Small nucleolar RNA U2-30: a 70-nucleotide RNA sequence from Prolemur simus. By type it is a C/D-box small nucleolar RNA. The family's consensus secondary structure is taken from published work. The family has 21 seed sequences and 664 matches in Rfam 15.1. Taxonomically the source falls in Prolemur (Eukaryota, Eutheria, Strepsirrhini, Lemuriformes). The literature on the family includes a 2004 paper in Curr Biol by Tycowski et al., "Guide RNAs with 5' Caps and Novel Box C/D snoRNA-like Domains for Modification of snRNAs in Metazoa". A search with the family's covariance model found it, with a score of 67 bits.

RNA sequence: GGCUGAUGAUGGAAAGGUUUUACUCCUGACCUUCAUAACUAGGAAGGUUUCUAUACUUGGCCUGAGCUCA
Numbered sequence: 001g002g003c004u005g006a007u008g009a010u011g012g013a014a015a016g017g018u019u020u021u022a023c024u025c026c027u028g029a030c031c032u033u034c035a036u037a038a039c040u041a042g043g044a045a046g047g048u049u050u051c052u053a054u055a056c057u058u059g060g061c062c063u064g065a066g067c068u069c070a
Stems, first nucleotide, its partner, number of pairs: 001068003014033006